This 121-nucleotide RNA from Paenibacillus catalpae belongs to the Rfam family "Guanidine-I riboswitch aptamer". Taxonomically the source falls in Paenibacillus (Bacteria, Bacillota, Bacilli, Caryophanales). The base pairs follow the family's consensus structure.
RNA sequence: GGCAAAGCUGUCUAGGGUUCCGUUGACGAGUAAAGUCAAGGCUGGUCCGAGAGACGGCGUAUGGCGGAAGCUGGAAGUUGCGGCCGGCCAUAUGACACGGAAGGAUAAAAGCCUGGGAGAU
Number, nucleotide and partner (000 for none) at each position: 001g000002g000003c000004a000005a000006a000007g058008c057009u056010g055011u054012c053013u000014a000015g048016g047017g000018u000019u000020c045021c044022g042023u039024u038025g037026a036027c035028g000029a000030g000031u000032a000033a000034a000035g027036u026037c025038a024039a023040g000041g000042c022043u000044g021045g020046u000047c016048c015049g000050a000051g000052a000053g012054a011055c010056g009057g008058c007059g093060u092061a091062u090063g089064g088065c087066g000067g000068a000069a000070g000071c000072u000073g000074g000075a000076a000077g000078u000079u000080g000081c000082g000083g000084c000085c000086g000087g065088c064089c063090a062091u061092a060093u059094g000095a000096c116097a000098c119099g000100g000101a000102a114103g113104g112105a000106u000107a000108a000109a000110a000111g000112c104113c103114u102115g000116g096117g000118a000119g098120a000121u000